The family of this 349-nucleotide RNA sequence from Castor canadensis is "TrkB IRES". Gene Ontology term of the family: ribosome binding. The family has 16 seed sequences and 130 matches in Rfam 15.1. The literature on the family includes a 2005 paper in Nucleic Acids Res by Dobson et al., "Internal initiation of translation of the TrkB mRNA is mediated by multiple regions within the 5' leader". Rfam's curators write: This family represents the TrkB internal ribosome entry site (IRES) which is present in the 5' leader sequence of the mRNA. TrkB is a neurotrophin receptor which is essential for the development and maintenance of the nervous system. The IRES element allows cap-independent translation of TrkB which may be needed for efficient translation in neuronal dendrites. The source organism's lineage runs through Eukaryota, Metazoa, Dipnotetrapodomorpha, Mammalia and Castor.

RNA sequence: UCCCCGUGCGCCUUUAGCGAGGAGUCUGCGCGCAGAGAGUCCCGGGAGCGCCGCCGGCCGGUGCCCCGCGAGCCGAGCCAUGCAGCAGCUUCCGCGAUGGAGCUCCGAGCGGCGGUAGCACCCCGCGAGAAGCGGUCCGCAAUGCCCCGGCAACUGUGAUCGGUGCCGCCCACCCAUAUACACUCAGCCCCGGACAGGUUCAGCGUUGGACACACACGACCCUGCGCACCGGCGACUAGCACCUAGGAGUCCAGUGGGCAGGGAGCGCAGGGAAGGCCUCCCCGCAGUGCCGGGGAACGCCGGGGGUGCAGCGCGCGAACACGCACUCGGGCUGCACUGGAGGCUAGGG
Numbered sequence: 001u002c003c004c005c006g007u008g009c010g011c012c013u014u015u016a017g018c019g020a021g022g023a024g025u026c027u028g029c030g031c032g033c034a035g036a037g038a039g040u041c042c043c044g045g046g047a048g049c050g051c052c053g054c055c056g057g058c059c060g061g062u063g064c065c066c067c068g069c070g071a072g073c074c075g076a077g078c079c080a081u082g083c084a085g086c087a088g089c090u091u092c093c094g095c096g097a098u099g100g101a102g103c104u105c106c107g108a109g110c111g112g113c114g115g116u117a118g119c120a121c122c123c124c125g126c127g128a129g130a131a132g133c134g135g136u137c138c139g140c141a142a143u144g145c146c147c148c149g150g151c152a153a154c155u156g157u158g159a160u161c162g163g164u165g166c167c168g169c170c171c172a173c174c175c176a177u178a179u180a181c182a183c184u185c186a187g188c189c190c191c192g193g194a195c196a197g198g199u200u201c202a203g204c205g206u207u208g209g210a211c212a213c214a215c216a217c218g219a220c221c222c223u224g225c226g227c228a229c230c231g232g233c234g235a236c237u238a239g240c241a242c243c244u245a246g247g248a249g250u251c252c253a254g255u256g257g258g259c260a261g262g263g264a265g266c267g268c269a270g271g272g273a274a275g276g277c278c279u280c281c282c283c284g285c286a287g288u289g290c291c292g293g294g295g296a297a298c299g300c301c302g303g304g305g306g307u308g309c310a311g312c313g314c315g316c317g318a319a320c321a322c323g324c325a326c327u328c329g330g331g332c333u334g335c336a337c338u339g340g341a342g343g344c345u346a347g348g349g
Stems, first nucleotide, its partner, number of pairs: 001295004006290004021042003025036004044282005050277003056110001059107003064100002067096004072092001075089001077086002112157005121150002127145001129143001132140003161272001164269003168266002171263001173261001181256004187250002190247002195218001198215002200210002203207001224242001229239001299344003305338008314329002317326001